rmf RNA: a 133-nucleotide RNA sequence from Pseudomonas protegens. The family's RNA type in Rfam is cis-regulatory element. The family's consensus secondary structure is taken from published work.
[Rfam]
RNA sequence: UUGGUUAGAACUCAACACAGGUUGGCGCCGCAACGGUGUCAACAUCAAAGCUCGCGACGCCGGCAGCGAGCACCAACGGCAGAAGCAAUCUGCCCGACCUCAACGAAGGUCGACGGGACAUAAAGCAGUCAAC
Numbered sequence: 001u002u003g004g005u006u007a008g009a010a011c012u013c014a015a016c017a018c019a020g021g022u023u024g025g026c027g028c029c030g031c032a033a034c035g036g037u038g039u040c041a042a043c044a045u046c047a048a049a050g051c052u053c054g055c056g057a058c059g060c061c062g063g064c065a066g067c068g069a070g071c072a073c074c075a076a077c078g079g080c081a082g083a084a085g086c087a088a089u090c091u092g093c094c095c096g097a098c099c100u101c102a103a104c105g106a107a108g109g110u111c112g113a114c115g116g117g118a119c120a121u122a123a124a125g126c127a128g129u130c131a132a133c
Stems, first nucleotide, its partner, number of pairs: 021043009050071006078094006096111005